[Rfam]
RNA sequence: GAUACCGGGGAUCGCCCUCCGUCAGCGCGUUGCGCCCACGGGGGCAAUUUUG
Dot-bracket structure: ...............(((((((..((((...))))..)))))))........

The family of this 52-nucleotide RNA from Paracoccus tegillarcae is "ffh sRNA". A search with the family's covariance model found it, with a score of 73 bits. The literature on the family includes a 2009 paper in BMC Genomics by Meyer et al., "Identification of candidate structured RNAs in the marine organism 'Candidatus Pelagibacter ubique'". By type it is a small RNA. The family's consensus secondary structure is taken from published work.